[Rfam]
RNA sequence: GUGGAAGUUCCAUCUACAAAUGGAUAGUACUGUUGUAUUCAUUUAUUUUAUAUGAAUACAAAUUUUUGAAUAUAUAAAUCCCCCAAUAUCCAAUAUCUUGUUCUUAGAACAAGAUAUUGGAUAUUG
Numbered sequence: 001g002u003g004g005a006a007g008u009u010c011c012a013u014c015u016a017c018a019a020a021u022g023g024a025u026a027g028u029a030c031u032g033u034u035g036u037a038u039u040c041a042u043u044u045a046u047u048u049u050a051u052a053u054g055a056a057u058a059c060a061a062a063u064u065u066u067u068g069a070a071u072a073u074a075u076a077a078a079u080c081c082c083c084c085a086a087u088a089u090c091c092a093a094u095a096u097c098u099u100g101u102u103c104u105u106a107g108a109a110c111a112a113g114a115u116a117u118u119g120g121a122u123a124u125u126g
Stems, first nucleotide, its partner, number of pairs: 009024005084126006091119003095115005